A member of the RNA family "TPP riboswitch aptamer (THI element)" from Cetobacterium sp. 2A, 98 nucleotides long. Taxonomically the source falls in Cetobacterium (Bacteria, Fusobacteriati, Fusobacteriales, Fusobacteriaceae).
RNA sequence: AAUUAAUGCUAGGGGAGCCUUCGGGCUGAGAAGUUUUAUACUGACCCUUUGAACCUGAUCUGGAUUGUACCAGCGUAGGGAAGCAGUUUUGUAUCGCU
Number, nucleotide and partner (000 for none) at each position: 001a000002a000003u000004u000005a000006a000007u085008g084009c083010u082011a048012g047013g046014g045015g000016a042017g026018c025019c024020u000021u000022c000023g000024g019025g018026c017027u000028g000029a000030g000031a000032a000033g041034u040035u000036u000037u000038a000039u000040a034041c033042u016043g000044a000045c014046c013047c012048u011049u000050u000051g000052a000053a000054c079055c078056u077057g076058a000059u000060c073061u072062g071063g070064a000065u000066u000067g000068u000069a000070c063071c062072a061073g060074c000075g000076u057077a056078g055079g054080g000081a000082a010083g009084c008085a007086g000087u000088u000089u000090u000091g000092u000093a000094u000095c000096g000097c000098u000